[Rfam]
RNA sequence: GCAGGACGAUGACCUAUGAAUUGACAGCCAGCGUAUGUGGAGGACCUGCCUGUCAGUUCUGUAGGCCAAUGUCCUGU
Dot-bracket structure: ((((((((.((.((((.((((((((((.(((..............))).))))))))))..)))).)).))))))))
Source information: Rfam assigns this 77-nucleotide RNA sequence from Scleropages formosus to the family "mir-192/215 microRNA precursor family". It scores 76 bits against the family's covariance model. Rfam describes the family as follows. This family represents the human microRNA (miRNA) precursors mir-192 and mir-215. Animal miRNAs are transcribed as ~70nt precursors and subsequently processed by the Dicer enzyme to give a ~22nt product. In this case the mature sequence comes from the 5' arm of the precursor. For this family Rfam cites "New microRNAs from mouse and human" (Lagos-Quintana et al., RNA, 2003). The organism belongs to Scleropages, within Eukaryota. Gene Ontology terms of the family: RISC complex and miRNA-mediated post-transcriptional gene silencing.